Shown here is an 85-nucleotide sequence from Agrilus planipennis, a member of the family "mir-275 microRNA precursor family". The base pairs follow the family's consensus structure, which was predicted with RNAalifold.
[Rfam]
RNA sequence: CAGCCUGUUGCUAUGCGCGUUACUUCGGUGCUUGGCUGCGUUUCGUCGAGUCAGGUACCUGAAGUAGCGCGCGUAGCGACACGGA
Numbered sequence: 001c002a003g004c005c006u007g008u009u010g011c012u013a014u015g016c017g018c019g020u021u022a023c024u025u026c027g028g029u030g031c032u033u034g035g036c037u038g039c040g041u042u043u044c045g046u047c048g049a050g051u052c053a054g055g056u057a058c059c060u061g062a063a064g065u066a067g068c069g070c071g072c073g074u075a076g077c078g079a080c081a082c083g084g085a
Stems, first nucleotide, its partner, number of pairs: 009078004014073001016071007030056003034052004